[Rfam]
Rfam assigns this 113-nucleotide RNA from Miscanthus lutarioriparius to the family "MIR5565 microRNA precursor family". It scores 86 bits against the family's covariance model. The source organism's lineage runs through Eukaryota, Spermatophyta, Poaceae, Panicoideae and Miscanthus.
RNA sequence: GUUGUCGGAUUCACCUCAAUCCAUAUGUGUUGGGAUGGAUUGGGGUGAAAUUUAGUUCAAGUUCCACAUACUCCGAUGCAUCCCAACACAUGUGAAUUGAUGUGAACCCAACU
Numbered sequence: 001g002u003u004g005u006c007g008g009a010u011u012c013a014c015c016u017c018a019a020u021c022c023a024u025a026u027g028u029g030u031u032g033g034g035a036u037g038g039a040u041u042g043g044g045g046u047g048a049a050a051u052u053u054a055g056u057u058c059a060a061g062u063u064c065c066a067c068a069u070a071c072u073c074c075g076a077u078g079c080a081u082c083c084c085a086a087c088a089c090a091u092g093u094g095a096a097u098u099g100a101u102g103u104g105a106a107c108c109c110a111a112c113u
Stems, first nucleotide, its partner, number of pairs: 004112002007109002010106005016100005022094011035081003039077005045067003